[Rfam]
Plastid-atpF group II-D1 intron: a 53-nucleotide RNA from Prunus yedoensis.
On this family, see Richter et al., Plant Commun 2023: "Retrograde signaling in plants: A critical review focusing on the GUN pathway and beyond".
Its family is annotated with Group II intron splicing in the Gene Ontology.
It scores 62 bits against the family's covariance model.
RNA sequence: UUUUUUUUUUUCGAUAUAAAACACUCAUGUCGCUAAAAUUAUUUGAACCCGUU
Numbered sequence: 001u002u003u004u005u006u007u008u009u010u011u012c013g014a015u016a017u018a019a020a021a022c023a024c025u026c027a028u029g030u031c032g033c034u035a036a037a038a039u040u041a042u043u044u045g046a047a048c049c050c051g052u053u
Stems, first nucleotide, its partner, number of pairs: 012032006
The family's consensus secondary structure was predicted with LocARNA. Rfam describes the family as follows. Plastid atpF is a non-coding RNA (ncRNA) recognised in plastids. It has been reported in the intron group II-D1 region of ATP synthase (atpF) genes.